[Rfam]
RNA sequence: GAAUCUGUUCGUAGUACAGCGAAACAGGGUAAUAUAAAGAAAUGUACGCUAAGA
Dot-bracket structure: .....((((((..[[[[..))).))).................]]]].......